[Rfam]
RNA sequence: UUGACAGCCCUGGAGACUGAAGCCUUCUAUUUAUCCACAGAACAGGUACAGCACAGGCAGCAGCAGUGCAAGCUUCCCCACAGUGUUUCAUCCAAAUGUCUCAUCCCUGUUCUGGAGGAUCCACCUGUUGAGGUGAGAAGGUAGUUCAGUCUCUUCACGCCCAGACAAUACAUGGCCUCU
Number, nucleotide and partner (000 for none) at each position: 001u000002u167003g166004a000005c000006a000007g161008c000009c000010c000011u157012g156013g153014a152015g151016a150017c149018u148019g147020a146021a145022g000023c000024c141025u140026u139027c000028u138029a000030u137031u136032u135033a134034u133035c132036c000037a000038c109039a108040g107041a000042a000043c000044a000045g000046g000047u000048a101049c000050a000051g099052c098053a097054c000055a000056g000057g000058c000059a000060g000061c000062a087063g086064c085065a084066g000067u000068g000069c000070a000071a000072g000073c000074u000075u000076c000077c000078c000079c000080a000081c000082a000083g000084u065085g064086u063087u062088u000089c000090a000091u000092c000093c000094a000095a000096a000097u053098g052099u051100c000101u048102c000103a000104u000105c000106c000107c040108u039109g038110u000111u000112c130113u000114g128115g000116a126117g125118g124119a000120u000121c000122c000123a000124c118125c117126u116127g000128u114129u000130g112131a000132g035133g034134u033135g032136a031137g030138a028139a026140g025141g024142u000143a000144g000145u021146u020147c019148a018149g017150u016151c015152u014153c013154u000155u000156c012157a011158c000159g000160c000161c007162c000163a000164g000165a000166c003167a002168a000169u000170a000171c000172a000173u000174g000175g000176c000177c000178u000179c000180u000
RNA: TUC338